[Rfam]
RNA sequence: GGACAUAAACGCGCUCGUAAUAAGCGGAUCGGACCCGGGGGCGGUACCCGGCGUCUCCACCAAUACACUCUGGCGGUAUCCUUCAUUUGGGGAUCACUUUCAGAAGCGAGGGGACGAAAUAGGAUCGACGAACGUCUAAAGGGGUUAGCUUUGUUUCGGCUGUCUGCCACCGUUACCGGCGAAAACUGUACAAUUGCAAAUGACAAUCGUGCUCCAGUAGCAAUGGCUGCGUAA
Numbered sequence: 001g002g003a004c005a006u007a008a009a010c011g012c013g014c015u016c017g018u019a020a021u022a023a024g025c026g027g028a029u030c031g032g033a034c035c036c037g038g039g040g041g042c043g044g045u046a047c048c049c050g051g052c053g054u055c056u057c058c059a060c061c062a063a064u065a066c067a068c069u070c071u072g073g074c075g076g077u078a079u080c081c082u083u084c085a086u087u088u089g090g091g092g093a094u095c096a097c098u099u100u101c102a103g104a105a106g107c108g109a110g111g112g113g114a115c116g117a118a119a120u121a122g123g124a125u126c127g128a129c130g131a132a133c134g135u136c137u138a139a140a141g142g143g144g145u146u147a148g149c150u151u152u153g154u155u156u157c158g159g160c161u162g163u164c165u166g167c168c169a170c171c172g173u174u175a176c177c178g179g180c181g182a183a184a185a186c187u188g189u190a191c192a193a194u195u196g197c198a199a200a201u202g203a204c205a206a207u208c209g210u211g212c213u214c215c216a217g218u219a220g221c222a223a224u225g226g227c228u229g230c231g232u233a234a
Stems, first nucleotide, its partner, number of pairs: 001156005013145004025134002029131003035051005052116007157172003